[Rfam]
RNA sequence: AGGAAGAAUCUGUAAAGCUCAGGAGGGAUAGCGCCAUGGACGAUGAGGAACAUGAAUUCUGAAACCAUUUGGAGGUUCUACUUUCAAGUCUAAUGCGCUAUCUAUCCUGAGUUCUAUGGGUUCUUCCU
Numbered sequence: 001a002g003g004a005a006g007a008a009u010c011u012g013u014a015a016a017g018c019u020c021a022g023g024a025g026g027g028a029u030a031g032c033g034c035c036a037u038g039g040a041c042g043a044u045g046a047g048g049a050a051c052a053u054g055a056a057u058u059c060u061g062a063a064a065c066c067a068u069u070u071g072g073a074g075g076u077u078c079u080a081c082u083u084u085c086a087a088g089u090c091u092a093a094u095g096c097g098c099u100a101u102c103u104a105u106c107c108u109g110a111g112u113u114c115u116a117u118g119g120g121u122u123c124u125u126c127c128u
Stems, first nucleotide, its partner, number of pairs: 010119001016113009026103009
Background:
Rfam assigns this 128-nucleotide RNA from Musa balbisiana to the family "MIR390 microRNA precursor family". Rfam links the family to the GO terms miRNA-mediated post-transcriptional gene silencing and RISC complex. Lineage of the source: Eukaryota > Viridiplantae > Liliopsida > commelinids > Musa. The match comes from Rfam's covariance-model search (96 bits). The base pairs follow the family's consensus structure, which was predicted with WAR.